[Rfam]
RNA sequence: GGGCACUUGGCACAGUGGUAGCGCGCACGCUUCGCACUGUGGUGAUUACGUAGAUUGCGUGAGGUCGGGAGUUCGAUCCUCCCAGUGUCCA
Numbered sequence: 001g002g003g004c005a006c007u008u009g010g011c012a013c014a015g016u017g018g019u020a021g022c023g024c025g026c027a028c029g030c031u032u033c034g035c036a037c038u039g040u041g042g043u044g045a046u047u048a049c050g051u052a053g054a055u056u057g058c059g060u061g062a063g064g065u066c067g068g069g070a071g072u073u074c075g076a077u078c079c080u081c082c083c084a085g086u087g088u089c090c091a
Stems, first nucleotide, its partner, number of pairs: 001090007010024002013021001026061005067083005
The family of this 91-nucleotide sequence from Piloderma croceum is "tRNA".
NCBI's taxonomy places the organism under Eukaryota, Opisthokonta, Fungi, Agaricomycotina, Piloderma croceum.
Rfam links the family to the GO term triplet codon-amino acid adaptor activity.
The family's consensus secondary structure is taken from published work.
It is annotated as a transfer RNA.
Rfam's curators write: Transfer RNA (tRNA) molecules are approximately 80 nucleotides in length.